[Rfam]
RNA sequence: AAAAAACUGUAGUCUGUUGCCCUUACUCACUGGCCCAGCCUCUUGUAAACUUCAGGGACAGAAUCACCGUUGUUUUUGGGUGAACCUCUGUUAUUAAUUUGUUGCUCAAGGUUCAGUUAAUGAUGGUCAAUAU
Numbered sequence: 001a002a003a004a005a006a007c008u009g010u011a012g013u014c015u016g017u018u019g020c021c022c023u024u025a026c027u028c029a030c031u032g033g034c035c036c037a038g039c040c041u042c043u044u045g046u047a048a049a050c051u052u053c054a055g056g057g058a059c060a061g062a063a064u065c066a067c068c069g070u071u072g073u074u075u076u077u078g079g080g081u082g083a084a085c086c087u088c089u090g091u092u093a094u095u096a097a098u099u100u101g102u103u104g105c106u107c108a109a110g111g112u113u114c115a116g117u118u119a120a121u122g123a124u125g126g127u128c129a130a131u132a133u
Stems, first nucleotide, its partner, number of pairs: 004052002014038003066127009081115007

This 133-nucleotide RNA from Lupinus albus belongs to the Rfam family "Small nucleolar RNA snoR74". Gene Ontology terms of the family: nucleolus and RNA processing. A search with the family's covariance model found it, with a score of 65 bits.